Rfam assigns this 91-nucleotide RNA from Tripterygium wilfordii to the family "Small nucleolar RNA Z221/R21b". The family's consensus secondary structure was predicted with WAR.
RNA sequence: GGGCGGUGAUGAGGAAGAAGUCAUGCACCACUCGCUCUGAUCGAAUCUAUGCUGAUUAUAAAUUCUCAUUUAACCAUUCGUAUCUGAGCCC
Numbered sequence: 001g002g003g004c005g006g007u008g009a010u011g012a013g014g015a016a017g018a019a020g021u022c023a024u025g026c027a028c029c030a031c032u033c034g035c036u037c038u039g040a041u042c043g044a045a046u047c048u049a050u051g052c053u054g055a056u057u058a059u060a061a062a063u064u065c066u067c068a069u070u071u072a073a074c075c076a077u078u079c080g081u082a083u084c085u086g087a088g089c090c091c
Base pairs, nucleotide, nucleotide: 001091002090003089004088

On this family, see Chen et al., Nucleic Acids Res 2003: "The high diversity of snoRNAs in plants: identification and comparative study of 120 snoRNA genes from Oryza sativa".